Shown here is a 141-nucleotide RNA sequence from Tianweitania sediminis, a member of the family "Alphaproteobacterial sRNA ar7". For this family Rfam cites "A survey of sRNA families in alpha-proteobacteria" (del Val et al., RNA Biol, 2012).
[Rfam]
RNA sequence: CAUCGGCAGCGAACGCCGAAGUUCGGAGACGGCCCGUCCCCCGCCGUUCCGGAUUGAUGUGGUGGCUUCAUCCCCUCUCCGGGCUGCCACAUUGUGAUACGGCCACCGUGGUAUCCCCCCCCUCCACCACGGUGGCCGCUU
Numbered sequence: 001c002a003u004c005g006g007c008a009g010c011g012a013a014c015g016c017c018g019a020a021g022u023u024c025g026g027a028g029a030c031g032g033c034c035c036g037u038c039c040c041c042c043g044c045c046g047u048u049c050c051g052g053a054u055u056g057a058u059g060u061g062g063u064g065g066c067u068u069c070a071u072c073c074c075c076u077c078u079c080c081g082g083g084c085u086g087c088c089a090c091a092u093u094g095u096g097a098u099a100c101g102g103c104c105a106c107c108g109u110g111g112u113a114u115c116c117c118c119c120c121c122c123u124c125c126a127c128c129a130c131g132g133u134g135g136c137c138g139c140u141u
Stems, first nucleotide, its partner, number of pairs: 022053007031045003057092011101137001103135010

It scores 91 bits against the family's covariance model.